[Rfam]
RNA sequence: UAAAAAGACUUGGAGGCUUGCAAAAUGCCUCCUGGGUCGUGAAGAACAGCUAGGUAAAUCAAGGCCGUGAUAUCGUUUCAGUCGUCAUUCUUCGAAUUGACGAUUCGAUUGUUGCACGUCUACAU
Numbered sequence: 001u002a003a004a005a006a007g008a009c010u011u012g013g014a015g016g017c018u019u020g021c022a023a024a025a026u027g028c029c030u031c032c033u034g035g036g037u038c039g040u041g042a043a044g045a046a047c048a049g050c051u052a053g054g055u056a057a058a059u060c061a062a063g064g065c066c067g068u069g070a071u072a073u074c075g076u077u078u079c080a081g082u083c084g085u086c087a088u089u090c091u092u093c094g095a096a097u098u099g100a101c102g103a104u105u106c107g108a109u110u111g112u113u114g115c116a117c118g119u120c121u122a123c124a125u
Stems, first nucleotide, its partner, number of pairs: 007038005013031005063121002066118004072109004081104007089096001
The family of this 125-nucleotide sequence from Turnera subulata is "Small nucleolar RNA snoR111". For this family Rfam cites "Experimental RNomics: identification of 140 candidates for small non-messenger RNAs in the plant Arabidopsis thaliana" (Marker et al., Curr Biol, 2002). The family's consensus secondary structure was predicted with WAR. Gene Ontology terms of the family: nucleolus and RNA processing. NCBI's taxonomy places the organism under Eukaryota, Magnoliopsida, Mesangiospermae, fabids, Turnera.